[Rfam]
RNA sequence: GACGAGUCGAUAAAACAACGCGAGAUGCGUAUAUUUUGAGAUAGAGGACAUCUGAUUUGAAUAUCGAGGCACGGGAAGUGCUGAUGUUGGGCAACUUCUGAUGUGAACGGAACGUCCCACA
Numbered sequence: 001g002a003c004g005a006g007u008c009g010a011u012a013a014a015a016c017a018a019c020g021c022g023a024g025a026u027g028c029g030u031a032u033a034u035u036u037u038g039a040g041a042u043a044g045a046g047g048a049c050a051u052c053u054g055a056u057u058u059g060a061a062u063a064u065c066g067a068g069g070c071a072c073g074g075g076a077a078g079u080g081c082u083g084a085u086g087u088u089g090g091g092c093a094a095c096u097u098c099u100g101a102u103g104u105g106a107a108c109g110g111a112a113c114g115u116c117c118c119a120c121a
Stems, first nucleotide, its partner, number of pairs: 006042003011038005018030004047088006053066004068082005089118003096112004